[Rfam]
RNA sequence: UUUGAUGAUGAAUCCCAGUUUUUAAGCAUAGUUCACCUGAAGGUCUUCGGAUCGCUGAACGACAACCAACACCAUCUUUCACCUUUUCUGAAU
Numbered sequence: 001u002u003u004g005a006u007g008a009u010g011a012a013u014c015c016c017a018g019u020u021u022u023u024a025a026g027c028a029u030a031g032u033u034c035a036c037c038u039g040a041a042g043g044u045c046u047u048c049g050g051a052u053c054g055c056u057g058a059a060c061g062a063c064a065a066c067c068a069a070c071a072c073c074a075u076c077u078u079u080c081a082c083c084u085u086u087u088c089u090g091a092a093u
Stems, first nucleotide, its partner, number of pairs: 006018001009017002031060005042053004
RNA: A. fumigatus snoRNA Afu_263
Organism: Uncinocarpus reesii